A member of the RNA family "SAM (S-adenosyl methionine) riboswitch aptamer" from Streptomyces sp. So13.3, 116 nucleotides long. The family's consensus secondary structure is taken from published work. Lineage of the source: Bacteria > Bacillati > Actinomycetes > Streptomycetaceae > Streptomyces. Rfam describes the family as follows. SAM-IV is a mRNA element that regulates gene expression via direct sensing of S-adenosylmethionine (SAM or AdoMet). SAM-IV riboswitches share conserved nucleotide positions with the previously described SAM-I riboswitches sequence analysis and molecular recognition experiments suggest that SAM-I and SAM-IV riboswitches share similar ligand binding sites, but have different scaffolds. The match comes from Rfam's covariance-model search (108 bits).

RNA sequence: GGUCACGAGUGACAGCGAUUUGGCCCUGGCUUGCUGUCCGGCAACCCUCCGUCCGUGGCGGGGUGCCCCAGGUGAUGACCGGGCCGUAGGCGAGGUGUCUACGGCAAGCGCGGGCC
Numbered sequence: 001g002g003u004c005a006c007g008a009g010u011g012a013c014a015g016c017g018a019u020u021u022g023g024c025c026c027u028g029g030c031u032u033g034c035u036g037u038c039c040g041g042c043a044a045c046c047c048u049c050c051g052u053c054c055g056u057g058g059c060g061g062g063g064u065g066c067c068c069c070a071g072g073u074g075a076u077g078a079c080c081g082g083g084c085c086g087u088a089g090g091c092g093a094g095g096u097g098u099c100u101a102c103g104g105c106a107a108g109c110g111c112g113g114g115c116c
Stems, first nucleotide, its partner, number of pairs: 001080004009039001011038006022031002040067003045063003049058002083105010